[Rfam]
RNA sequence: AAUUUGCGUUAGGGAUUGAAGCGGCAUCCUUUUUUGAAGUGCUGAGCCCAGAGCCUGUCGAAGGGUCGAAGCACACAAAAAAGAUAUAGCGGAAAGCCCGACCAUCG
Numbered sequence: 001a002a003u004u005u006g007c008g009u010u011a012g013g014g015a016u017u018g019a020a021g022c023g024g025c026a027u028c029c030u031u032u033u034u035u036g037a038a039g040u041g042c043u044g045a046g047c048c049c050a051g052a053g054c055c056u057g058u059c060g061a062a063g064g065g066u067c068g069a070a071g072c073a074c075a076c077a078a079a080a081a082a083g084a085u086a087u088a089g090c091g092g093a094a095a096g097c098c099c100g101a102c103c104a105u106c107g
Stems, first nucleotide, its partner, number of pairs: 012099003016095002021090002026085003032080005039074005
The record is a 107-nucleotide RNA from Christiangramia forsetii, which matches "Flavo-1 RNA" in Rfam. It is one of the family's seed sequences. Rfam classes the family as a small RNA.